[Rfam]
RNA: SAM riboswitch aptamer (S box leader)
Organism: Oceanobacillus indicireducens
RNA sequence: UUCUUAUCAAGAGCGGCGGAGGGAUUAGGCCCGAUGAAGCCCGGCAACCUUGAAGUAAGCAAUUUUACUUUUAAUGGUGCUAAAUCCUACAGAUCUACCCGGAUCUGGAAGAUAAGAG
Dot-bracket structure: ((((((((....(.(((...(((..[[[[)))......))))((((.(((.((((((........)))))).)..))))))...(]]]]((((((......))))))..)))))))))
Numbered sequence: 001u002u003c004u005u006a007u008c009a010a011g012a013g014c015g016g017c018g019g020a021g022g023g024a025u026u027a028g029g030c031c032c033g034a035u036g037a038a039g040c041c042c043g044g045c046a047a048c049c050u051u052g053a054a055g056u057a058a059g060c061a062a063u064u065u066u067a068c069u070u071u072u073a074a075u076g077g078u079g080c081u082a083a084a085u086c087c088u089a090c091a092g093a094u095c096u097a098c099c100c101g102g103a104u105c106u107g108g109a110a111g112a113u114a115a116g117a118g
Stems, first nucleotide, its partner, number of pairs: 001118008013042001015041003021032003026089004043081004048077002050073001052071006085110001090107006